[Rfam]
RNA: Mammalian CPEB3 ribozyme
RNA sequence: AGAGGUCUCAAGUUUGAGGUCACAACAGAAGUGCUCACGGUACAGCUCUAUCAGAUUCCAAUGAAUCUGCAAAUUUUGCU
Numbered sequence: 001a002g003a004g005g006u007c008u009c010a011a012g013u014u015u016g017a018g019g020u021c022a023c024a025a026c027a028g029a030a031g032u033g034c035u036c037a038c039g040g041u042a043c044a045g046c047u048c049u050a051u052c053a054g055a056u057u058c059c060a061a062u063g064a065a066u067c068u069g070c071a072a073a074u075u076u077u078g079c080u
Stems, first nucleotide, its partner, number of pairs: 016048002019046002024080001026078005031043003052069007